[Rfam]
RNA: Small nucleolar RNA SNORD79
RNA sequence: UACUGUUAGUGAUGAAGCCUAAACAGAUGGGAAUCUCUCUGAAUGAGAAUGAAGCUUUAUUUUAAACUGAAACAGUA
Numbered sequence: 001u002a003c004u005g006u007u008a009g010u011g012a013u014g015a016a017g018c019c020u021a022a023a024c025a026g027a028u029g030g031g032a033a034u035c036u037c038u039c040u041g042a043a044u045g046a047g048a049a050u051g052a053a054g055c056u057u058u059a060u061u062u063u064a065a066a067c068u069g070a071a072a073c074a075g076u077a
Base pairs, nucleotide, nucleotide: 001077002076003075004074005073006072007071